[Rfam]
RNA sequence: UCCCGUCGCAUAUCCGGGUAAUGAUAUGCUCCUCCCUGUUGGACUGGCCGGGCCUUGUGCCCGGCCUUUUUU
Numbered sequence: 001u002c003c004c005g006u007c008g009c010a011u012a013u014c015c016g017g018g019u020a021a022u023g024a025u026a027u028g029c030u031c032c033u034c035c036c037u038g039u040u041g042g043a044c045u046g047g048c049c050g051g052g053c054c055u056u057g058u059g060c061c062c063g064g065c066c067u068u069u070u071u072u
Stems, first nucleotide, its partner, number of pairs: 008029007046066008
Source information
A member of the RNA family "Singlet oxygen resistance RNA X" from Seohaeicola zhoushanensis, 72 nucleotides long. A search with the family's covariance model found it, with a score of 89 bits. Rfam describes the family as follows. SorX (RSs2461)like SorY is a singlet oxygen induced sRNA that counteracts oxidative stress by targeting mRNA for a transporter in Rhodobacter. The literature on the family includes a 2016 paper in RNA Biol by Peng et al., "Regulation of a polyamine transporter by the conserved 3' UTR-derived sRNA SorX confers resistance to singlet oxygen and organic hydroperoxides in Rhodobacter sphaeroides". Its family is annotated with response to photooxidative stress in the Gene Ontology.